[Rfam]
RNA sequence: AUCAGGUUGUGCGACUGACGGAAGCUGGGAGUACCCAGGGGGAACACAACACGAAGAAUUGCCGACCGUCUGGGCACCGUUU
Number, nucleotide and partner (000 for none) at each position: 001a000002u000003c053004a000005g000006g050007u049008u048009g047010u046011g045012c000013g000014a000015c041016u040017g070018a069019c068020g067021g066022a000023a000024g000025c000026u037027g036028g035029g034030a000031g000032u000033a000034c029035c028036c027037a026038g000039g000040g016041g015042g000043a000044a000045c011046a010047c009048a008049a007050c006051a000052c000053g003054a000055a000056g000057a000058a000059u000060u076061g075062c074063c073064g000065a000066c021067c020068g019069u018070c017071u000072g000073g063074g062075c061076a060077c000078c000079g000080u000081u000082u000
RNA: ZMP/ZTP riboswitch aptamer (pfl RNA motif)